[Rfam]
A member of the RNA family "Small nucleolar RNA SNORD16" from Electrophorus electricus, 96 nucleotides long. The family's consensus secondary structure was predicted with PFOLD. Rfam links the family to the GO terms RNA processing and nucleolus.
RNA sequence: UGCGAUGAUGGUGUAAUUUGCGUCCGACUCUGGUCAGCGACAGAUGCCUGCUGUCUAGUUCUGGCACGGAGUGAUGACGAUAAUGGUGACUGAGCG
Numbered sequence: 001u002g003c004g005a006u007g008a009u010g011g012u013g014u015a016a017u018u019u020g021c022g023u024c025c026g027a028c029u030c031u032g033g034u035c036a037g038c039g040a041c042a043g044a045u046g047c048c049u050g051c052u053g054u055c056u057a058g059u060u061c062u063g064g065c066a067c068g069g070a071g072u073g074a075u076g077a078c079g080a081u082a083a084u085g086g087u088g089a090c091u092g093a094g095c096g
Base pairs, nucleotide, nucleotide: 001096002095003094021079022078023077024076030069031068032065037061039055040054041053042052043051